[Rfam]
RNA sequence: UUGUAGCCCCGAUCGAAGUGAAAAUCUCUCGCUUUUUUGCGAGAAUUGUAACGCAGAGCGGGAAUAAUC
Numbered sequence: 001u002u003g004u005a006g007c008c009c010c011g012a013u014c015g016a017a018g019u020g021a022a023a024a025u026c027u028c029u030c031g032c033u034u035u036u037u038u039g040c041g042a043g044a045a046u047u048g049u050a051a052c053g054c055a056g057a058g059c060g061g062g063a064a065u066a067a068u069c
Stems, first nucleotide, its partner, number of pairs: 009061003013057002018052002023047003028043005
The record is a 69-nucleotide RNA sequence from Flavobacterium psychrophilum, which matches "Flavo-1 RNA" in Rfam. Rfam classes the family as a small RNA. The source organism's lineage runs through Bacteria, Pseudomonadati, Bacteroidota, Flavobacterium and Flavobacterium psychrophilum. It is one of the family's seed sequences.